Overview: A member of the RNA family "Glycine riboswitch aptamer" from Poindextera montana, 91 nucleotides long. Rfam links the family to the GO term glycine biosynthetic process. Pairs were carried over by alignment from the consensus structure.

[Rfam]
RNA sequence: CGCGCCGUUACGGGAGAGACCGGCCCAAAAAGCCGGCGCCGAAGGAGCAACCGCCCCGGAAACUCUCAGGCAAAAGGACCGUUCGGCGAAC
Numbered sequence: 001c002g003c004g005c006c007g008u009u010a011c012g013g014g015a016g017a018g019a020c021c022g023g024c025c026c027a028a029a030a031a032g033c034c035g036g037c038g039c040c041g042a043a044g045g046a047g048c049a050a051c052c053g054c055c056c057c058g059g060a061a062a063c064u065c066u067c068a069g070g071c072a073a074a075a076g077g078a079c080c081g082u083u084c085g086g087c088g089a090a091c
Stems, first nucleotide, its partner, number of pairs: 006086001010082004020036004038071003041067002045065003051059002